[Rfam]
RNA sequence: GGCAAGAGUAGAAGCGUUCAGCACGCAGGCCCGCCACCAGGGCCUGCUCCGCGGGUCAUUGCUCUUGAA
Numbered sequence: 001g002g003c004a005a006g007a008g009u010a011g012a013a014g015c016g017u018u019c020a021g022c023a024c025g026c027a028g029g030c031c032c033g034c035c036a037c038c039a040g041g042g043c044c045u046g047c048u049c050c051g052c053g054g055g056u057c058a059u060u061g062c063u064c065u066u067g068a069a
Stems, first nucleotide, its partner, number of pairs: 005065006015054001019055001021052002025047008
RNA: Xanthine riboswitch aptamer (NMT1 RNA)